This 106-nucleotide RNA from Pseudomonas kuykendallii belongs to the Rfam family "Guanidine-I riboswitch aptamer". Lineage of the source: Bacteria > Pseudomonadati > Gammaproteobacteria > Pseudomonadales > Pseudomonas. It scores 83 bits against the family's covariance model.
RNA sequence: CCAGAGGCGAACUAGGGUUCCGGUCCACGCGAGUGGAUGGCAGGUCCGAGAGUUCUCCGGCCCCAAGGACACGGGGGCUACACGGCGGGAUAAAAGCCCGGGAGAC
Dot-bracket structure: ......(.((((..((...(((((((((....))))))..).)).))....)))).).(.((((........)))).)..(.[...(((.......))).)..]..